[Rfam]
RNA sequence: CCAUAGCCCUGAUAGCAGUGGAAAUCCUUUUUGUUUUUUCUUUAAAAACAAAAAGAUUGCAACGGAUAGCAGGAUUAGCU
Dot-bracket structure: ........(((.((...((...((((..((((((((((.....)))))))))).))))...))...)).)))........
Numbered sequence: 001c002c003a004u005a006g007c008c009c010u011g012a013u014a015g016c017a018g019u020g021g022a023a024a025u026c027c028u029u030u031u032u033g034u035u036u037u038u039u040c041u042u043u044a045a046a047a048a049c050a051a052a053a054a055g056a057u058u059g060c061a062a063c064g065g066a067u068a069g070c071a072g073g074a075u076u077a078g079c080u
Stems, first nucleotide, its partner, number of pairs: 009072003013068002018063002023058004029053010